[Rfam]
Description: Rfam assigns this 71-nucleotide RNA from Etheostoma spectabile to the family "miR-430 microRNA precursor family". Gene Ontology terms of the family: miRNA-mediated post-transcriptional gene silencing and RISC complex. The source organism's lineage runs through Eukaryota, Eumetazoa, Actinopteri, Etheostomatinae and Oligocephalus. Its Rfam clan is "mir-290 clan". For this family Rfam cites "MicroRNAs regulate brain morphogenesis in zebrafish" (Giraldez et al., Science, 2005).
RNA sequence: AGAACCACCCAAAACACAAGCACUGACUUGAGUUGUGUAUGCAGUAAGUGCUACUUGUUGGGGCAGCAGUU
Numbered sequence: 001a002g003a004a005c006c007a008c009c010c011a012a013a014a015c016a017c018a019a020g021c022a023c024u025g026a027c028u029u030g031a032g033u034u035g036u037g038u039a040u041g042c043a044g045u046a047a048g049u050g051c052u053a054c055u056u057g058u059u060g061g062g063g064c065a066g067c068a069g070u071u
Stems, first nucleotide, its partner, number of pairs: 005066001008063003014058003019052006026045003